[Rfam]
RNA sequence: GGUAUUGUUUGCCCCACGAUCGGCCCCGGAAACCAAUUGUGAUACGCAACAAUCGUAAA
Numbered sequence: 001g002g003u004a005u006u007g008u009u010u011g012c013c014c015c016a017c018g019a020u021c022g023g024c025c026c027c028g029g030a031a032a033c034c035a036a037u038u039g040u041g042a043u044a045c046g047c048a049a050c051a052a053u054c055g056u057a058a059a
Stems, first nucleotide, its partner, number of pairs: 008059005015041006022034002
RNA: Ribosomal protein L13 leader
Organism: Aerococcus sp. Group 1